[Rfam]
RNA sequence: UGACUGAGAGCGUUGUCUGUCUGCCUGUCUACACUUGCUGUGCAGAACUUCCUGCACCUGUACAGCAGGCACAGACAGGCAGACAGAUGGCAGCCCGCCU
Numbered sequence: 001u002g003a004c005u006g007a008g009a010g011c012g013u014u015g016u017c018u019g020u021c022u023g024c025c026u027g028u029c030u031a032c033a034c035u036u037g038c039u040g041u042g043c044a045g046a047a048c049u050u051c052c053u054g055c056a057c058c059u060g061u062a063c064a065g066c067a068g069g070c071a072c073a074g075a076c077a078g079g080c081a082g083a084c085a086g087a088u089g090g091c092a093g094c095c096c097g098c099c100u
Stems, first nucleotide, its partner, number of pairs: 017086003022081009034069001036067006043060003
RNA: mir-214 microRNA precursor family
Organism: Danio rerio